[Rfam]
RNA sequence: UCUUCGUAUAUCCCCAGUAAUAGGGUCUGGGGGUUUCUACCAGGCAACCGUAAAUUGCCCGGCUACGAAGG
Numbered sequence: 001u002c003u004u005c006g007u008a009u010a011u012c013c014c015c016a017g018u019a020a021u022a023g024g025g026u027c028u029g030g031g032g033g034u035u036u037c038u039a040c041c042a043g044g045c046a047a048c049c050g051u052a053a054a055u056u057g058c059c060c061g062g063c064u065a066c067g068a069a070g071g
Stems, first nucleotide, its partner, number of pairs: 001071008012032006041061001043059005
Dot-bracket structure: ((((((((...((((((.........))))))........(.(((((.......))))).)..))))))))
RNA: Purine riboswitch aptamer